RNA sequence: CAGUGUUACAGCUCUUCCAGAAUUUGUUUAGCAGGUUUUCUGGUUUUCACAGGAAAAUAA
Dot-bracket structure: ...................................((((((.((....)).)))))...)

The record is a 60-nucleotide RNA from Gorilla gorilla, which matches "U7 small nuclear RNA" in Rfam.
The base pairs follow the family's consensus structure, which was predicted with PFOLD.
On this family, see Spycher et al., Nucleic Acids Res 1994: "3' end processing of mouse histone pre-mRNA: evidence for additional base-pairing between U7 snRNA and pre-mRNA".
About the family: Animal histone pre-mRNAs are spliced by a different mechanism than nuclear pre-mRNAs and self-splicing introns.
NCBI's taxonomy places the organism under Eukaryota, Craniata, Dipnotetrapodomorpha, Tetrapoda, Gorilla gorilla.